A member of the RNA family "MIR390 microRNA precursor family" from Lupinus albus, 106 nucleotides long. Rfam links the family to the GO terms miRNA-mediated post-transcriptional gene silencing and RISC complex.

RNA sequence: UGAAUGAAUCUGUUAAGCUCAGGAGGGAUAGCGCCAUGGAUGAUCUUCUCUUGCUCCAUUUUUGAUCUUCUAUUGUGCUAUCCAUCCUGAGUUUCAUGGGUUUCUU
Numbered sequence: 001u002g003a004a005u006g007a008a009u010c011u012g013u014u015a016a017g018c019u020c021a022g023g024a025g026g027g028a029u030a031g032c033g034c035c036a037u038g039g040a041u042g043a044u045c046u047u048c049u050c051u052u053g054c055u056c057c058a059u060u061u062u063u064g065a066u067c068u069u070c071u072a073u074u075g076u077g078c079u080a081u082c083c084a085u086c087c088u089g090a091g092u093u094u095c096a097u098g099g100g101u102u103u104c105u106u
Stems, first nucleotide, its partner, number of pairs: 010099001016093009026083009